[Rfam]
RNA sequence: GGGGGACGUGGGCAGACUCCCCUCCAGACGCGCCGCGUCCAAGCGCUGC
Numbered sequence: 001g002g003g004g005g006a007c008g009u010g011g012g013c014a015g016a017c018u019c020c021c022c023u024c025c026a027g028a029c030g031c032g033c034c035g036c037g038u039c040c041a042a043g044c045g046c047u048g049c
Stems, first nucleotide, its partner, number of pairs: 001023006012049004027039005
Rfam assigns this 49-nucleotide RNA sequence from Ramlibacter rhizophilus to the family "chrB-b RNA". Pairs were carried over by alignment from the consensus structure, which is taken from published work.